[Rfam]
RNA: Lysine riboswitch aptamer
RNA sequence: AAAUGCAGAAGAGGAGCAUUGCCCAGGUAGGUAGUUUGUGGAGCCCCACUCCAAGACAAAUUACUCAGGGGGAGCAGUGCCGAGGUGUUGAUUUUGGGGAAAGUCGAUAUCGGGUGUUUAGGUUGAAUCCUAGCAACUGUCGCUCGACCUAAAGAGCGAUGAGCUUCUAAGAAU
Numbered sequence: 001a002a003a004u005g006c007a008g009a010a011g012a013g014g015a016g017c018a019u020u021g022c023c024c025a026g027g028u029a030g031g032u033a034g035u036u037u038g039u040g041g042a043g044c045c046c047c048a049c050u051c052c053a054a055g056a057c058a059a060a061u062u063a064c065u066c067a068g069g070g071g072g073a074g075c076a077g078u079g080c081c082g083a084g085g086u087g088u089u090g091a092u093u094u095u096g097g098g099g100a101a102a103g104u105c106g107a108u109a110u111c112g113g114g115u116g117u118u119u120a121g122g123u124u125g126a127a128u129c130c131u132a133g134c135a136a137c138u139g140u141c142g143c144u145c146g147a148c149c150u151a152a153a154g155a156g157c158g159a160u161g162a163g164c165u166u167c168u169a170a171g172a173a174u
Stems, first nucleotide, its partner, number of pairs: 007168005016080007024072001030065008084111012112138002115135003119132004140159006